[Rfam]
RNA: Streptococcus sRNA SpF44
RNA sequence: AUGUCAUCCCGUGAGGUGACGAAGACGCAGAAAUAUAUGAAAUUCUUUAAGAAUGAGAUAAUCCUCUUUUUAAAGAAGUCUACUCUGAGAGCCUAUUGCUGUA
Numbered sequence: 001a002u003g004u005c006a007u008c009c010c011g012u013g014a015g016g017u018g019a020c021g022a023a024g025a026c027g028c029a030g031a032a033a034u035a036u037a038u039g040a041a042a043u044u045c046u047u048u049a050a051g052a053a054u055g056a057g058a059u060a061a062u063c064c065u066c067u068u069u070u071u072a073a074a075g076a077a078g079u080c081u082a083c084u085c086u087g088a089g090a091g092c093c094u095a096u097u098g099c100u101g102u103a
Stems, first nucleotide, its partner, number of pairs: 002021005009016002027102004032097004044076010078092002080089002